[Rfam]
RNA: tRNA
RNA sequence: GUCCCGAUAGUAUAAAAAUUACUCUGGUCUUGUAAACCAAAAAUGAAGAGUCAGUCUUCUCAGGACA
Numbered sequence: 001g002u003c004c005c006g007a008u009a010g011u012a013u014a015a016a017a018a019u020u021a022c023u024c025u026g027g028u029c030u031u032g033u034a035a036a037c038c039a040a041a042a043a044u045g046a047a048g049a050g051u052c053a054g055u056c057u058u059c060u061c062a063g064g065a066c067a
Stems, first nucleotide, its partner, number of pairs: 001066004006061002010022003025039004045059005